raiA RNA: a 208-nucleotide RNA sequence from Dialister histaminiformans.
It scores 197 bits against the family's covariance model.
Pairs were carried over by alignment from the consensus structure, which is taken from published work.
NCBI's taxonomy places the organism under Bacteria, Bacillota, Negativicutes, Veillonellales, Dialister.
By type it is a riboswitch.
RNA sequence: CAUGAUCAGGUCUGUGGUUGCAAGUCGAGGCCAGUCGCAGGCAAAACGAUCCACAUAAGGUAUCAAAAAUGGAUACUGAGCAUGGUGCGGUUUAGAAGUAAGACCUGCCGGUAAAAAACCGAGAGGGCUAAUAGUGAGAGGAAAAUCACCGGGUAGCGAACGCUCCAGCAGGCGAGUGUGGGGGCAAAAACCAGGUCAGCUGAAUAUG
Numbered sequence: 001c002a003u004g005a006u007c008a009g010g011u012c013u014g015u016g017g018u019u020g021c022a023a024g025u026c027g028a029g030g031c032c033a034g035u036c037g038c039a040g041g042c043a044a045a046a047c048g049a050u051c052c053a054c055a056u057a058a059g060g061u062a063u064c065a066a067a068a069a070u071g072g073a074u075a076c077u078g079a080g081c082a083u084g085g086u087g088c089g090g091u092u093u094a095g096a097a098g099u100a101a102g103a104c105c106u107g108c109c110g111g112u113a114a115a116a117a118a119c120c121g122a123g124a125g126g127g128c129u130a131a132u133a134g135u136g137a138g139a140g141g142a143a144a145a146u147c148a149c150c151g152g153g154u155a156g157c158g159a160a161c162g163c164u165c166c167a168g169c170a171g172g173c174g175a176g177u178g179u180g181g182g183g184g185c186a187a188a189a190a191c192c193a194g195g196u197c198a199g200c201u202g203a204a205u206a207u208g
Stems, first nucleotide, its partner, number of pairs: 001208004006203004012199003015193005028179001030177001031041001033092007050085002058077002063072002083186001104172005109121004125165004134157002140150002